A member of the RNA family "Small nucleolar RNA SNORA68" from Pleuronectes platessa, 131 nucleotides long.

RNA sequence: UUUGCACCCUAACCCAAAGAUCCCACCCUGCCCGUGGUGUGAUGUUGCCUGGUGUGCAGACACUAACGGGUCCUUGUCGCCUUUCUCUGACGCUGCCGUGACUCAGAAAGUGAAUCCAAGGGCCCACAUCU
Numbered sequence: 001u002u003u004g005c006a007c008c009c010u011a012a013c014c015c016a017a018a019g020a021u022c023c024c025a026c027c028c029u030g031c032c033c034g035u036g037g038u039g040u041g042a043u044g045u046u047g048c049c050u051g052g053u054g055u056g057c058a059g060a061c062a063c064u065a066a067c068g069g070g071u072c073c074u075u076g077u078c079g080c081c082u083u084u085c086u087c088u089g090a091c092g093c094u095g096c097c098g099u100g101a102c103u104c105a106g107a108a109a110g111u112g113a114a115u116c117c118a119a120g121g122g123c124c125c126a127c128a129u130c131u
Base pairs, nucleotide, nucleotide: 002059003058004057005056006055007054009052020043021042022041024039025038026037027036069124070123071122072121073120074119075118081110082109083108084107085106086105089102091100
From the family's description: U68 is a member of the H/ACA class of small nucleolar RNAs (snoRNAs) which act as guides in the the modification of uridines to pseudouridines. On this family, see Ganot et al., Genes Dev 1997: "The family of box ACA small nucleolar RNAs is defined by an evolutionarily conserved secondary structure and ubiquitous sequence elements essential for RNA accumulation". Taxonomically the source falls in Pleuronectes (Eukaryota, Craniata, Ctenosquamata, Euacanthomorphacea). Its family is annotated with nucleolus and RNA processing in the Gene Ontology. Rfam 15.1 lists 1,079 matches to the family in 643 species.